RNA sequence: UGAGCAUCAGUGAUGAUUGAAACCUGAAAUGUUAUCCUUGCACUAUGAUUGACUAGUGAAGAAAAAUAUGGGGAAGUGUCUGUCUGAGAUGCUU
Numbered sequence: 001u002g003a004g005c006a007u008c009a010g011u012g013a014u015g016a017u018u019g020a021a022a023c024c025u026g027a028a029a030u031g032u033u034a035u036c037c038u039u040g041c042a043c044u045a046u047g048a049u050u051g052a053c054u055a056g057u058g059a060a061g062a063a064a065a066a067u068a069u070g071g072g073g074a075a076g077u078g079u080c081u082g083u084c085u086g087a088g089a090u091g092c093u094u
Base pairs, nucleotide, nucleotide: 002094003093004092005091006090007089008088
Dot-bracket structure: .(((((((...............................................................................)))))))

Rfam assigns this 94-nucleotide RNA sequence from Kalanchoe fedtschenkoi to the family "Small nucleolar RNA snoR26".
On this family, see Brown et al., RNA 2001: "Multiple snoRNA gene clusters from Arabidopsis".
Its family is annotated with RNA processing and nucleolus in the Gene Ontology.
The match comes from Rfam's covariance-model search (87 bits).
By type it is a C/D-box small nucleolar RNA.
The family's consensus secondary structure was predicted with WAR.